[Rfam]
RNA sequence: GUGCCGCCAACGCCGAAUCCGCGCUCGCAAGCGCGGAGCGGGGGACCCAAUUGGUUGCCCGGUGCCACCGGGGGCGAACCCCGCUGCCUCACGGUAGCGGGGAGCGCGAACUCUUCCCGCGCGAGCCCGUCAGCUAACCCCGCAGGCGUCGGACAGAGACCGU
Numbered sequence: 001g002u003g004c005c006g007c008c009a010a011c012g013c014c015g016a017a018u019c020c021g022c023g024c025u026c027g028c029a030a031g032c033g034c035g036g037a038g039c040g041g042g043g044g045a046c047c048c049a050a051u052u053g054g055u056u057g058c059c060c061g062g063u064g065c066c067a068c069c070g071g072g073g074g075c076g077a078a079c080c081c082c083g084c085u086g087c088c089u090c091a092c093g094g095u096a097g098c099g100g101g102g103a104g105c106g107c108g109a110a111c112u113c114u115u116c117c118c119g120c121g122c123g124a125g126c127c128c129g130u131c132a133g134c135u136a137a138c139c140c141c142g143c144a145g146g147c148g149u150c151g152g153a154c155a156g157a158g159a160c161c162g163u
Stems, first nucleotide, its partner, number of pairs: 011148004018037008038143006048071001072128003080101007104122004

Annotation: The family of this 163-nucleotide sequence from bacterium HR41 is "c-di-AMP riboswitch aptamer (ydaO/yuaA leader)". The match comes from Rfam's covariance-model search (66 bits).